[Rfam]
RNA sequence: ACUUUACAUUUAUUUUCGUUCCUUACUUUCUUGCUCACUAUUAAUCUUGACAGAAAGUUAAAUAAUCUGUAAGGAGCCAUUUUAUG
Numbered sequence: 001a002c003u004u005u006a007c008a009u010u011u012a013u014u015u016u017c018g019u020u021c022c023u024u025a026c027u028u029u030c031u032u033g034c035u036c037a038c039u040a041u042u043a044a045u046c047u048u049g050a051c052a053g054a055a056a057g058u059u060a061a062a063u064a065a066u067c068u069g070u071a072a073g074g075a076g077c078c079a080u081u082u083u084a085u086g
Stems, first nucleotide, its partner, number of pairs: 018077007025058006033046001
A member of the RNA family "RpsF leader" from Sodalis endosymbiont of Henestaris halophilus, 86 nucleotides long. The literature on the family includes a 2014 paper in RNA by Fu et al., "Bacterial RNA motif in the 5' UTR of rpsF interacts with an S6:S18 complex". The base pairs follow the family's consensus structure. Rfam's curators write: Conserved and widely distributed to many bacterial species RNA structure. It precedes operon containing rpsF, which encodes ribosomal protein S6. The motif also precedes operon containing rpsR, which encodes ribosomal protein S18. The RNA was shown to interact with S6:S18 protein dimer in vitro. It was shown that RpsF leader regulates gene expression in response to the S6:S18 complex, contributing to the regulation of ribosomal protein levels. NCBI's taxonomy places the organism under Bacteria, Pseudomonadota, Gammaproteobacteria, Bruguierivoracaceae, Sodalis. Rfam classes the family as a cis-regulatory leader. The match comes from Rfam's covariance-model search (47 bits).